This 97-nucleotide RNA sequence from Intestinibacter bartlettii belongs to the Rfam family "Purine riboswitch aptamer".
RNA sequence: UGACAAAUAAAAUAUGAUACUUAUAUAAAUUCAUGAUUGGAUGAAUGUUUCUACAAACUACCGUAAUAGUUUUGCUAUAAGUUUUUGAAAAAAACGG
Number, nucleotide and partner (000 for none) at each position: 001u000002g000003a000004c000005a000006a000007a000008u000009a000010a000011a000012a000013u000014a000015u000016g000017a000018u000019a082020c081021u080022u079023a078024u077025a076026u000027a000028a000029a046030u045031u044032c043033a042034u041035g000036a000037u000038u000039g000040g000041a034042u033043g032044a031045a030046u029047g000048u000049u000050u000051c000052u000053a000054c000055a073056a071057a070058c069059u068060a067061c000062c000063g000064u000065a000066a000067u060068a059069g058070u057071u056072u000073u055074g000075c000076u025077a024078u023079a022080a021081g020082u019083u000084u000085u000086u000087g000088a000089a000090a000091a000092a000093a000094a000095c000096g000097g000